Shown here is a 217-nucleotide RNA from Streptomyces boluensis, a member of the family "Streptomyces RNA 1601". Lineage of the source: Bacteria > Actinomycetota > Actinomycetes > Streptomycetaceae > Streptomyces. The pairing is the family consensus, mapped onto this sequence. Identified by deep sequencing of transcriptome at the end of exponential growth phase. Appears longer on northern blot than sequencing transcript.
RNA sequence: ACCGACCGGCCGGACACGUCGCGGCACCCUCGUCAGAGGAGCCAGACGAACCGGCCCACAAGUGGAGGCUCCGAUCUCCCACCUGGUCGCCCCUCGGGCGGCAGGUCACCGGUCCGACGGCCACUUCGAGUGGCUGUCCAUUGCGCCCCGCGUACGACGCGGCGGUGCUCCGGUAAGUGAUGGAGCCCCGCAUGUGAUCGUCUCCGGGGCAUUUUUU
Numbered sequence: 001a002c003c004g005a006c007c008g009g010c011c012g013g014a015c016a017c018g019u020c021g022c023g024g025c026a027c028c029c030u031c032g033u034c035a036g037a038g039g040a041g042c043c044a045g046a047c048g049a050a051c052c053g054g055c056c057c058a059c060a061a062g063u064g065g066a067g068g069c070u071c072c073g074a075u076c077u078c079c080c081a082c083c084u085g086g087u088c089g090c091c092c093c094u095c096g097g098g099c100g101g102c103a104g105g106u107c108a109c110c111g112g113u114c115c116g117a118c119g120g121c122c123a124c125u126u127c128g129a130g131u132g133g134c135u136g137u138c139c140a141u142u143g144c145g146c147c148c149c150g151c152g153u154a155c156g157a158c159g160c161g162g163c164g165g166u167g168c169u170c171c172g173g174u175a176a177g178u179g180a181u182g183g184a185g186c187c188c189c190g191c192a193u194g195u196g197a198u199c200g201u202c203u204c205c206g207g208g209g210c211a212u213u214u215u216u217u
Base pairs, nucleotide, nucleotide: 004114005113006112007111008110009109012052013051053107054106055105056104059085060084062082063081064080065079066077067076086102087101088100089099090098091097092096116138117137118136119135120134121133122132123131124130125129145210146209147208148207149206150205151200152199158196159195160194162191163190164189165188167186168185169184170183171182